RNA sequence: AAAAAGGGCGUUUGUCGUGAGUGGCACGUGACGGUUCCGAUCGUACAUUUAAAGGGACCGUUGCGCGGAAUCGCUAUCAAGAGAUUUCGGACGCAUAAUUUUUGUAAACGAAGGGCAGUUGGUGUCCCCAAGACCCGGCGCCCUG
Dot-bracket structure: .......((((((((((....)))))((((((((((((...............))))))))))))(((((((..........))))))))))))..................((((.(((((.(((.....))))))))))))..
RNA: U11 spliceosomal RNA
Organism: Dimorphilus gyrociliatus